[Rfam]
RNA: U1 spliceosomal RNA
Organism: Callithrix jacchus
RNA sequence: AUAUUUACCUGGCAGGGAAGAUAUCCUUAUCACAAAGGUGGUUUUCCUAGGGCAAGGCUUAAAUGUUGCAUUUCAGAUAUGUUGACCCUGUGAUUUACACACAUUUGGGAAAUUUGUCUGCAUGAUUUGUGGUAGUGGGGGAACUGCCUUGGCUUUUCUCCU
Numbered sequence: 001a002u003a004u005u006u007a008c009c010u011g012g013c014a015g016g017g018a019a020g021a022u023a024u025c026c027u028u029a030u031c032a033c034a035a036a037g038g039u040g041g042u043u044u045u046c047c048u049a050g051g052g053c054a055a056g057g058c059u060u061a062a063a064u065g066u067u068g069c070a071u072u073u074c075a076g077a078u079a080u081g082u083u084g085a086c087c088c089u090g091u092g093a094u095u096u097a098c099a100c101a102c103a104u105u106u107g108g109g110a111a112a113u114u115u116g117u118c119u120g121c122a123u124g125a126u127u128u129g130u131g132g133u134a135g136u137g138g139g140g141g142a143a144c145u146g147c148c149u150u151g152g153c154u155u156u157u158c159u160c161c162u
Stems, first nucleotide, its partner, number of pairs: 012121004016048002019045003023042003027038001049089004056083003060079002064075001091116003094112001095110002098107002137161005143156001146153002